[Rfam]
RNA: Streptomyces RNA 5676
RNA sequence: AGAUGAGAGAAACACCCCGCCCACAGGGGACUGUGGGCGACACAGGGUCGAGGCCUCCCCAGCUUCACCCUGGUCGUGCCCUCGCGCACACACCCGGAGCUUCCAGCUCCGGAUCUCCUCACCGAUCGGA
Number, nucleotide and partner (000 for none) at each position: 001a000002g000003a000004u121005g120006a119007g118008a000009g117010a116011a000012a000013c000014a000015c000016c000017c000018c039019g038020c037021c036022c035023a034024c033025a032026g031027g000028g000029g000030a000031c026032u025033g024034u023035g022036g021037g020038c019039g018040a000041c000042a074043c073044a000045g071046g070047g069048u000049c000050g066051a065052g064053g063054c062055c000056u000057c000058c000059c000060c000061a000062g054063c053064u052065u051066c050067a000068c000069c047070c046071u045072g000073g043074u042075c000076g089077u088078g087079c086080c000081c000082u000083c000084g000085c000086g079087c078088a077089c076090a000091c000092a000093c000094c112095c111096g110097g109098a108099g107100c106101u000102u000103c000104c000105a000106g100107c099108u098109c097110c096111g095112g094113a000114u000115c000116u010117c009118c007119u006120c005121a004122c129123c128124g000125a000126u000127c000128g123129g122130a000